[Rfam]
RNA sequence: CCAAGUCCCGACGCAAUCCCCCCCCCGGCGCCGGGACUUCCCGAGCCGGGCUUCGGCGCCUUCCCCCCAGGCGCCGGGGCCCGGCUCCUCU
Numbered sequence: 001c002c003a004a005g006u007c008c009c010g011a012c013g014c015a016a017u018c019c020c021c022c023c024c025c026c027g028g029c030g031c032c033g034g035g036a037c038u039u040c041c042c043g044a045g046c047c048g049g050g051c052u053u054c055g056g057c058g059c060c061u062u063c064c065c066c067c068c069a070g071g072c073g074c075c076g077g078g079g080c081c082c083g084g085c086u087c088c089u090c091u
Stems, first nucleotide, its partner, number of pairs: 005037006012030003043087010054076008
Notes:
The family of this 91-nucleotide RNA from Streptomyces aurantiogriseus is "Streptomyces RNA 3202". The source organism's lineage runs through Bacteria, Bacillati, Actinomycetota, Streptomycetaceae and Streptomyces. For this family Rfam cites "Deep sequencing-based identification of small non-coding RNAs in Streptomyces coelicolor" (Vockenhuber et al., RNA Biol, 2011). Rfam classes the family as a small RNA. The pairing is the family consensus, mapped onto this sequence.